[Rfam]
RNA sequence: GCCUCUGGUCAGUUUUGCUGGUUUGCAUUCAGCCUUAAAUCUGUCGCUGUGCAAAUCCAUGCAAAACUGACCGUAGCA
Number, nucleotide and partner (000 for none) at each position: 001g000002c000003c076004u075005c000006u073007g072008g071009u070010c069011a068012g067013u066014u065015u064016u063017g062018c061019u000020g058021g057022u055023u054024u053025g052026c051027a050028u049029u000030c000031a048032g047033c046034c000035u000036u000037a000038a000039a000040u000041c000042u000043g000044u000045c000046g033047c032048u031049g028050u027051g026052c025053a024054a023055a022056u000057c021058c020059a000060u000061g018062c017063a016064a015065a014066a013067c012068u011069g010070a009071c008072c007073g006074u000075a004076g003077c000078a000

Notes
A member of the RNA family "mir-19 microRNA precursor family" from Albula goreensis, 78 nucleotides long. Gene Ontology terms of the family: miRNA-mediated post-transcriptional gene silencing and RISC complex. The base pairs follow the family's consensus structure, which was predicted with RNAalifold. A reference for the family is Lagos-Quintana et al. (2001), "Identification of novel genes coding for small expressed RNAs", Science.